A member of the RNA family "DUF805b RNA", 35 nucleotides long.
[Rfam]
RNA sequence: AUGGAGAAGGCCGAAAAUCCAACAAAGAGUAGGCG
Numbered sequence: 001a002u003g004g005a006g007a008a009g010g011c012c013g014a015a016a017a018u019c020c021a022a023c024a025a026a027g028a029g030u031a032g033g034c035g
Stems, first nucleotide, its partner, number of pairs: 002021004010034003
The family's consensus secondary structure is taken from published work. Rfam's curators put it in the seed alignment. By type it is a cis-regulatory element.